[Rfam]
RNA sequence: AUUGUUGAUGGCGAUGGAGCUCGCCGAAACCGCUACUUUAUAUUAGAUAAAGAGCUAAUGGCUCCUACUUUCCC
Number, nucleotide and partner (000 for none) at each position: 001a000002u000003u000004g000005u000006u000007g000008a000009u000010g025011g024012c023013g022014a000015u000016g065017g064018a063019g062020c061021u060022c013023g012024c011025c010026g000027a000028a000029a000030c000031c000032g055033c054034u053035a000036c000037u000038u000039u000040a000041u000042a000043u000044u000045a000046g000047a000048u000049a000050a000051a000052g000053a034054g033055c032056u000057a000058a000059u000060g021061g020062c019063u018064c017065c016066u000067a000068c000069u000070u000071u000072c000073c000074c000